[Rfam]
RNA sequence: CAGGCAUGCUGGAGCUCCGCAGCGGCGCCCGGGACGAACGCGCCCGACACCGUAAUCACAUCGGAGCUUAA
Numbered sequence: 001c002a003g004g005c006a007u008g009c010u011g012g013a014g015c016u017c018c019g020c021a022g023c024g025g026c027g028c029c030c031g032g033g034a035c036g037a038a039c040g041c042g043c044c045c046g047a048c049a050c051c052g053u054a055a056u057c058a059c060a061u062c063g064g065a066g067c068u069u070a071a
Stems, first nucleotide, its partner, number of pairs: 012069008023052003030046004035040001
Notes
A member of the RNA family "ybhL leader" from Rhizobium sp. BK376, 71 nucleotides long. A search with the family's covariance model found it, with a score of 77 bits. Rfam describes the family as follows. This family is a putative regulatory RNA structure that is found upstream of an uncharacterized membrane protein in alpha-proteobacteria. A reference for the family is Corbino et al. (2005), "Evidence for a second class of S-adenosylmethionine riboswitches and other regulatory RNA motifs in alpha-proteobacteria", Genome Biol. The family's RNA type in Rfam is cis-regulatory leader. Pairs were carried over by alignment from the consensus structure.